[Rfam]
The family of this 121-nucleotide sequence from Actinopolymorpha pittospori is "Group II catalytic intron D1-D4-2". Gene Ontology term of the family: Group II intron splicing. The organism belongs to Actinopolymorpha, within Bacteria. A search with the family's covariance model found it, with a score of 89 bits.
Nucleotides: 121
Base pairs, nucleotide, nucleotide: 001019002018003017004016005015020045021044022043023042024041025040027038028037029036030035050120052095053094054093055092056091057090058084059083061081062080063079065077066076067075101116102115103114104113105112
Number, partner (000 for none) and nucleotide at each position: 001019g002018g003017a004016g005015g006000a007000u008000u009000g010000c011000u012000g013000g014000c015005c016004c017003u018002c019001c020045g021044g022043c023042g024041u025040c026000g027038c028037u029036u030035u031000u032000c033000g034000g035030g036029g037028a038027g039000a040025g041024a042023c043022g044021u045020c046000a047000a048000g049000c050120c051000a052095c053094c054093u055092c056091a057090c058084g059083c060000u061081g062080c063079g064000u065077u066076g067075g068000c069000u070000g071000a072000a073000g074000a075067c076066c077065a078000u079063c080062g081061u082000g083059g084058u085000g086000a087000g088000c089000g090057g091056u092055g093054a094053g095052g096000a097000a098000a099000a100000g101116g102115c103114c104113c105112g106000a107000g108000c109000a110000a111000a112105c113104g114103g115102g116101u117000a118000a119000g120050g121000c